Record summary:
S10-Clostridia ribosomal protein leader: a 90-nucleotide RNA sequence from bacterium 1xD8-6.
RNA sequence: UGAUAGCUGUGAAGCGCGAGGUUGCUGUUAGCCGGAGACGGAUAGCAGGUUUUCCGUGGAGCGAAUGUCAAGUUAGGAAACUGGCGACAA
Numbered sequence: 001u002g003a004u005a006g007c008u009g010u011g012a013a014g015c016g017c018g019a020g021g022u023u024g025c026u027g028u029u030a031g032c033c034g035g036a037g038a039c040g041g042a043u044a045g046c047a048g049g050u051u052u053u054c055c056g057u058g059g060a061g062c063g064a065a066u067g068u069c070a071a072g073u074u075a076g077g078a079a080a081c082u083g084g085c086g087a088c089a090a
Stems, first nucleotide, its partner, number of pairs: 014057003018054004025048005066089004072085004
The family's consensus secondary structure is taken from published work. On this family, see Eckert and Weinberg, BMC Microbiol 2020: "Discovery of 20 novel ribosomal leader candidates in bacteria and archaea". Rfam classes the family as a cis-regulatory leader.